[Rfam]
RNA: Archaeal RNase P
RNA sequence: GGCGGCCUUCGGCCGACGUGCCCCGGUGCAUGAGGAAAGUCCCCCCACCGUUCGGACGGGUGACCGGGCGCAAGCCCGGAGUCGGAGACGGCUGGCUCUGGAACAGAAACGAGACCACUCGGCCCGACCGAUGAGACGUGCGAACCCGACCGCGAGGGAGGGGAGUUGACCCGUCGAGGGCAGCGAGAUGCCACGCAUCUCGAACACGAACGGGCGCCUCGCGCCCGCGAGUAGACGGCCGAGAACGGAUGGAACGGCGAAUCCUCACCGGUGCAAGUCCGUGCCACGCGGCGCGCGACUCGACGCGAUUCGUGCGUCGACCGCGUGCCCAAAGGUAGUCCGAACGCAGGACGCGGACGCUCAGCCGAAUGUCGGGAGGAACAGAAGGGGGCUUACUCCUCUCAGCC
Numbered sequence: 001g002g003c004g005g006c007c008u009u010c011g012g013c014c015g016a017c018g019u020g021c022c023c024c025g026g027u028g029c030a031u032g033a034g035g036a037a038a039g040u041c042c043c044c045c046c047a048c049c050g051u052u053c054g055g056a057c058g059g060g061u062g063a064c065c066g067g068g069c070g071c072a073a074g075c076c077c078g079g080a081g082u083c084g085g086a087g088a089c090g091g092c093u094g095g096c097u098c099u100g101g102a103a104c105a106g107a108a109a110c111g112a113g114a115c116c117a118c119u120c121g122g123c124c125c126g127a128c129c130g131a132u133g134a135g136a137c138g139u140g141c142g143a144a145c146c147c148g149a150c151c152g153c154g155a156g157g158g159a160g161g162g163g164a165g166u167u168g169a170c171c172c173g174u175c176g177a178g179g180g181c182a183g184c185g186a187g188a189u190g191c192c193a194c195g196c197a198u199c200u201c202g203a204a205c206a207c208g209a210a211c212g213g214g215c216g217c218c219u220c221g222c223g224c225c226c227g228c229g230a231g232u233a234g235a236c237g238g239c240c241g242a243g244a245a246c247g248g249a250u251g252g253a254a255c256g257g258c259g260a261a262u263c264c265u266c267a268c269c270g271g272u273g274c275a276a277g278u279c280c281g282u283g284c285c286a287c288g289c290g291g292c293g294c295g296c297g298a299c300u301c302g303a304c305g306c307g308a309u310u311c312g313u314g315c316g317u318c319g320a321c322c323g324c325g326u327g328c329c330c331a332a333a334g335g336u337a338g339u340c341c342g343a344a345c346g347c348a349g350g351a352c353g354c355g356g357a358c359g360c361u362c363a364g365c366c367g368a369a370u371g372u373c374g375g376g377a378g379g380a381a382c383a384g385a386a387g388g389g390g391g392c393u394u395a396c397u398c399c400u401c402u403c404a405g406c407c
Base pairs, nucleotide, nucleotide: 001403002402004400005399008376009375010374011373012372013371017032018031019030020029021028037394038393039392041391042390043389044388045387046273047272048271049270059269060268061267062266063265064079065078066077067076068075080093081092082091083090084089094264095263099260101258115248116247118243119242120241121240122239123238124237277358278357279356280355281354282353283352285350